RNA sequence: AACUGGACUAGGCCGGGCGGUUAGGCCCCGCUCUCACCCCGCGCUAUGGUCUUCAGCGGGGGCCGAAACCCGGGGGCGUCCGUGCAGACGGGCGCGGGCCCCGUUAGCCAACGUCGAAGCCUCGUCCUGCGGGGGUAGCGGUCGGCACUGAAUCGCCUGCAGGGGCGUGCCGGUGUCGUUAACCGGGGGCAAUCCGCCAGGCGCGGAAGCGAGCAGCGGACCCCUGGACACCUGCCGCUCGCAGGGUCGCGGGGUGGAGGAGGCACGCGGGAUUCCCCACGCUCGAACGCCGGGCCAUCCCGGGCGUCCACUC
Numbered sequence: 001a002a003c004u005g006g007a008c009u010a011g012g013c014c015g016g017g018c019g020g021u022u023a024g025g026c027c028c029c030g031c032u033c034u035c036a037c038c039c040c041g042c043g044c045u046a047u048g049g050u051c052u053u054c055a056g057c058g059g060g061g062g063c064c065g066a067a068a069c070c071c072g073g074g075g076g077c078g079u080c081c082g083u084g085c086a087g088a089c090g091g092g093c094g095c096g097g098g099c100c101c102c103g104u105u106a107g108c109c110a111a112c113g114u115c116g117a118a119g120c121c122u123c124g125u126c127c128u129g130c131g132g133g134g135g136u137a138g139c140g141g142u143c144g145g146c147a148c149u150g151a152a153u154c155g156c157c158u159g160c161a162g163g164g165g166c167g168u169g170c171c172g173g174u175g176u177c178g179u180u181a182a183c184c185g186g187g188g189g190c191a192a193u194c195c196g197c198c199a200g201g202c203g204c205g206g207a208a209g210c211g212a213g214c215a216g217c218g219g220a221c222c223c224c225u226g227g228a229c230a231c232c233u234g235c236c237g238c239u240c241g242c243a244g245g246g247u248c249g250c251g252g253g254g255u256g257g258a259g260g261a262g263g264c265a266c267g268c269g270g271g272a273u274u275c276c277c278c279a280c281g282c283u284c285g286a287a288c289g290c291c292g293g294g295c296c297a298u299c300c301c302g303g304g305c306g307u308c309c310a311c312u313c
Base pairs, nucleotide, nucleotide: 002312004310005309006308007307008306011064012063013062014061015033016032017031018030019029020028038060039059040058041057042056069304070303071302072301073300074299075298078295079294080293081292082290083289084288089285090284091283092282093281094280096278097277098276100271101270102269103268104267107264108263109262112259114257119255120254121253122252123251124250125249126245127244128243129242130241131240132239133238134236135235136234137233138232140229141180143178144177145176146175147174148173149172150171154167155166156165157164158163183227184226185225186224187223188222189221193220194219195218196217197216202211203210204209
RNA: Archaeal signal recognition particle RNA
Organism: Halorhabdus utahensis